[Rfam]
RNA sequence: UAGGGGGGCCACCCAUCCCAGUUUGCCUGGGACUGAGGGGUUUCCUGGGAUGCUAAUACUGGGGCAAUCCCAGGCAAACCAGGAUAGUUGGUCACCCUAUCGAGAG
Numbered sequence: 001u002a003g004g005g006g007g008g009c010c011a012c013c014c015a016u017c018c019c020a021g022u023u024u025g026c027c028u029g030g031g032a033c034u035g036a037g038g039g040g041u042u043u044c045c046u047g048g049g050a051u052g053c054u055a056a057u058a059c060u061g062g063g064g065c066a067a068u069c070c071c072a073g074g075c076a077a078a079c080c081a082g083g084a085u086a087g088u089u090g091g092u093c094a095c096c097c098u099a100u101c102g103a104g105a106g
Base pairs, nucleotide, nucleotide: 001099002098003097004096005095007093008092009091010090011089013087015085021079022078023077024076025075026074027073028072029071030070031069032068034066035065038053040051041050042049
RNA: mir-584 microRNA precursor family
Organism: Loxodonta africana